[Rfam]
RNA sequence: CCAGCUCUAAGAGGUGUGCAGGUGUGGCUGCUGUGUCACAUAUGUGUCAGUAGGUGGCAGAGAAGAGACUAUGCUCAGGGUUCUGUUCUGACCUGUGAAUAUCUGAAUGGUUAGUAGCCCAACAGU
Numbered sequence: 001c002c003a004g005c006u007c008u009a010a011g012a013g014g015u016g017u018g019c020a021g022g023u024g025u026g027g028c029u030g031c032u033g034u035g036u037c038a039c040a041u042a043u044g045u046g047u048c049a050g051u052a053g054g055u056g057g058c059a060g061a062g063a064a065g066a067g068a069c070u071a072u073g074c075u076c077a078g079g080g081u082u083c084u085g086u087u088c089u090g091a092c093c094u095g096u097g098a099a100u101a102u103c104u105g106a107a108u109g110g111u112u113a114g115u116a117g118c119c120c121a122a123c124a125g126u
Stems, first nucleotide, its partner, number of pairs: 002060001004058003007054002010051001013048003018045003023040006067123001069117004080108001082106002084101005

A member of the RNA family "Small nucleolar RNA SNORA17" from Mus spicilegus, 126 nucleotides long. Rfam classes the family as an H/ACA-box small nucleolar RNA. The base pairs follow the family's consensus structure, which was predicted with RNAalifold. The literature on the family includes a 1997 paper in J Mol Biol by Ofengand and Bakin, "Mapping to nucleotide resolution of pseudouridine residues in large subunit ribosomal RNAs from representative eukaryotes, prokaryotes, archaebacteria, mitochondria and chloroplasts". The organism belongs to Mus, within Eukaryota. Its Rfam clan is "SNORA17 clan". The family has 53 seed sequences and 5,784 matches in Rfam 15.1.